[Rfam]
RNA sequence: CCCCUUGUCGCGUCGGGGUGAUGGCGCGGCACCUCCCUGUUGGACUGGCCCGGGCUUCGGCCCGGGUCUUUUU
Numbered sequence: 001c002c003c004c005u006u007g008u009c010g011c012g013u014c015g016g017g018g019u020g021a022u023g024g025c026g027c028g029g030c031a032c033c034u035c036c037c038u039g040u041u042g043g044a045c046u047g048g049c050c051c052g053g054g055c056u057u058c059g060g061c062c063c064g065g066g067u068c069u070u071u072u073u
Base pairs, nucleotide, nucleotide: 008029009028010027011026012025013024014023048067049066050065051064052063053062054061055060

A member of the RNA family "Singlet oxygen resistance RNA X" from Tropicimonas sediminicola, 73 nucleotides long. The family has 8 seed sequences and 528 matches in Rfam 15.1. SorX (RSs2461)like SorY is a singlet oxygen induced sRNA that counteracts oxidative stress by targeting mRNA for a transporter in Rhodobacter. It also has an impact on resistance against organic hydroperoxides. Pairs were carried over by alignment from the consensus structure. NCBI's taxonomy places the organism under Bacteria, Pseudomonadota, Alphaproteobacteria, Roseobacteraceae, Tropicimonas. The family's RNA type in Rfam is small RNA.